[Rfam]
RNA: Archaeal signal recognition particle RNA
Organism: Methanobrevibacter arboriphilus
RNA sequence: UUAUUGGCUAGACUGGAGGGUUAGGGGUCCUCUGUAAGCACACACCCCCUUAGGUGCAGUUGAAGUUCAGAAGGCGGCUUUUGGAUUUAAUAACAGCCUUGAAAAUUGAUAUAGAAACCUCGUCCUACAGGAUCAUUGGUCAUAAGGUUUUAACUGGAGGGUUAAGAUUAAUUAUGUUUUUUGUGGGAACGUGUCAGGCCUGGAAAGGAGCAGCUCUACCAUAAACACUUGAUGCUUGUAGAUUAGCGGGGCGGAGUUGAUUUUUGAGAGUACUGUUAUUAUUGAUACUAGUCCACUUCUGAACAUGCCGUUUA
Numbered sequence: 001u002u003a004u005u006g007g008c009u010a011g012a013c014u015g016g017a018g019g020g021u022u023a024g025g026g027g028u029c030c031u032c033u034g035u036a037a038g039c040a041c042a043c044a045c046c047c048c049c050u051u052a053g054g055u056g057c058a059g060u061u062g063a064a065g066u067u068c069a070g071a072a073g074g075c076g077g078c079u080u081u082u083g084g085a086u087u088u089a090a091u092a093a094c095a096g097c098c099u100u101g102a103a104a105a106u107u108g109a110u111a112u113a114g115a116a117a118c119c120u121c122g123u124c125c126u127a128c129a130g131g132a133u134c135a136u137u138g139g140u141c142a143u144a145a146g147g148u149u150u151u152a153a154c155u156g157g158a159g160g161g162u163u164a165a166g167a168u169u170a171a172u173u174a175u176g177u178u179u180u181u182u183g184u185g186g187g188a189a190c191g192u193g194u195c196a197g198g199c200c201u202g203g204a205a206a207g208g209a210g211c212a213g214c215u216c217u218a219c220c221a222u223a224a225a226c227a228c229u230u231g232a233u234g235c236u237u238g239u240a241g242a243u244u245a246g247c248g249g250g251g252c253g254g255a256g257u258u259g260a261u262u263u264u265u266g267a268g269a270g271u272a273c274u275g276u277u278a279u280u281a282u283u284g285a286u287a288c289u290a291g292u293c294c295a296c297u298u299c300u301g302a303a304c305a306u307g308c309c310g311u312u313u314a
Base pairs, nucleotide, nucleotide: 001314003312005310006309007308008307011061012060013059014058015033016032017031018030019029020028021027038057039056040055041054065304066303067302068301069300070299071298072297073296076293077292078291079290081287088281089280090279091278092277093276094275095274096273098268099267100266101265102264103263104262105261106260107259108258109257110256112254118251119250120249121248122247123246125241126240127239128238129237130236131235132233133232134231135230137227138226139178141176142175143174144173145172146169147168148167149166150165151164152163153162154161155160181224182223183222184221185220186219191216193214194213199208200207201206